[Rfam]
RNA: tRNA
Organism: Thermoflexibacter ruber
RNA sequence: ACGGGUGUAGCUCAACUGGUAGAGUGGCGGUCUCCAAAACCGUAGGUUGCGGGUUCGAUCCCUGCCACCCGUG
Dot-bracket structure: (((((((..((((........)))).(((((.......))))).....(((((.......)))))))))))).
Numbered sequence: 001a002c003g004g005g006u007g008u009a010g011c012u013c014a015a016c017u018g019g020u021a022g023a024g025u026g027g028c029g030g031u032c033u034c035c036a037a038a039a040c041c042g043u044a045g046g047u048u049g050c051g052g053g054u055u056c057g058a059u060c061c062c063u064g065c066c067a068c069c070c071g072u073g
Stems, first nucleotide, its partner, number of pairs: 001072007010025004027043005049065005